[Rfam]
RNA: 5' ureB small RNA
RNA sequence: GCCUCGUGCAGCUGCGAGGGCGACAGCAGGUGCACGUGGGUGUCGAACCCGCCGGCGGUGAGGAUCCGGCCCUCGCCGGAGAUCACGUCCGUGCCCGGCCCGAUGACCAGCGCCGGGUCGACGCCGUCGGCGAUGUCGGGAUUGCCGCUGCGGCCGAUCCCGACGAUCCGGCCGGCCCGGAUGCCGACGUCGGCGCGGACGAUCCCCCAGUGGUCGAGGAUGAUCACGUUGGUGAUGACGGUGUCGAGCGCGCCCUCGGCCGAGAGCACGCCGGACUGGUUCAUCGACUCGCGGAU
Numbered sequence: 001g002c003c004u005c006g007u008g009c010a011g012c013u014g015c016g017a018g019g020g021c022g023a024c025a026g027c028a029g030g031u032g033c034a035c036g037u038g039g040g041u042g043u044c045g046a047a048c049c050c051g052c053c054g055g056c057g058g059u060g061a062g063g064a065u066c067c068g069g070c071c072c073u074c075g076c077c078g079g080a081g082a083u084c085a086c087g088u089c090c091g092u093g094c095c096c097g098g099c100c101c102g103a104u105g106a107c108c109a110g111c112g113c114c115g116g117g118u119c120g121a122c123g124c125c126g127u128c129g130g131c132g133a134u135g136u137c138g139g140g141a142u143u144g145c146c147g148c149u150g151c152g153g154c155c156g157a158u159c160c161c162g163a164c165g166a167u168c169c170g171g172c173c174g175g176c177c178c179g180g181a182u183g184c185c186g187a188c189g190u191c192g193g194c195g196c197g198g199a200c201g202a203u204c205c206c207c208c209a210g211u212g213g214u215c216g217a218g219g220a221u222g223a224u225c226a227c228g229u230u231g232g233u234g235a236u237g238a239c240g241g242u243g244u245c246g247a248g249c250g251c252g253c254c255c256u257c258g259g260c261c262g263a264g265a266g267c268a269c270g271c272c273g274g275a276c277u278g279g280u281u282c283a284u285c286g287a288c289u290c291g292c293g294g295a296u
Stems, first nucleotide, its partner, number of pairs: 001296001003294001005293004010289001013165002018160001019077005031054002035051002038049002041046001058070002078155002083150001086147001091145002093142001095140002097137003104132002107130002110127002112124002171280004177274004182268002185264001193227001195225001207216001230262003237255001241253003